[Rfam]
Nucleotides: 126
Base pairs, nucleotide, nucleotide: 004021005020007018008017009016036052037051039049040048062120063119064118065117066116067115068114071111072110073109074108076107077106079104080103084099
Number, partner (000 for none) and nucleotide at each position: 001000a002000u003000u004021u005020g006000g007018c008017u009016u010000a011000g012000u013000u014000a015000g016009g017008g018007g019000g020005c021004g022000g023000a024000c025000a026000u027000c028000a029000a030000u031000c032000g033000g034000a035000a036052c037051c038000a039049a040048a041000u042000u043000a044000g045000c046000u047000u048040u049039u050000g051037g052036g053000g054000u055000c056000c057000u058000u059000u060000g061000a062120g063119a064118g065117a066116g067115g068114c069000c070000u071111c072110u073109u074108g075000a076107a077106g078000g079104g080103a081000c082000u083000c084099u085000c086000u087000a088000g089000u090000c091000u092000c093000a094000u095000a096000u097000u098000g099084a100000u101000u102000a103080u104079c105000a106077c107076u108074c109073a110072a111071g112000g113000a114068g115067c116066c117065u118064u119063u120062c121000a122000c123000a124000u125000u126000u

The record is a 126-nucleotide sequence from Arachis hypogaea, which matches "Small nucleolar RNA U19" in Rfam. It scores 57 bits against the family's covariance model. The family's consensus secondary structure was predicted with WAR. The family's RNA type in Rfam is H/ACA-box small nucleolar RNA. Gene Ontology terms of the family: nucleolus and RNA processing.